Small nucleolar RNA SNORA49: a 120-nucleotide RNA sequence from Salmo salar. Rfam 15.1 lists 722 matches to the family in 550 species. The base pairs follow the family's consensus structure, which was predicted with RNAalifold. Rfam describes the family as follows. The snoRNA ACA49 has no identified RNA target. NB genomic sequence 1-nt different from published. A search with the family's covariance model found it, with a score of 59 bits.

[Rfam]
RNA sequence: CUUCCCCUCCCUUACUCCAGUCACUCUGUACUCAGUGGGGUGGUCUGGCAUUGACAGGGGAUACAGCACUGUGGCCCUCUCAUCUAGGACUAUUCUCCUUUUAUAGAGAGAGCUGACAAU
Numbered sequence: 001c002u003u004c005c006c007c008u009c010c011c012u013u014a015c016u017c018c019a020g021u022c023a024c025u026c027u028g029u030a031c032u033c034a035g036u037g038g039g040g041u042g043g044u045c046u047g048g049c050a051u052u053g054a055c056a057g058g059g060g061a062u063a064c065a066g067c068a069c070u071g072u073g074g075c076c077c078u079c080u081c082a083u084c085u086a087g088g089a090c091u092a093u094u095c096u097c098c099u100u101u102u103a104u105a106g107a108g109a110g111a112g113c114u115g116a117c118a119a120u
Stems, first nucleotide, its partner, number of pairs: 003061006011053001017048004022043001023041005073114003077110002086099004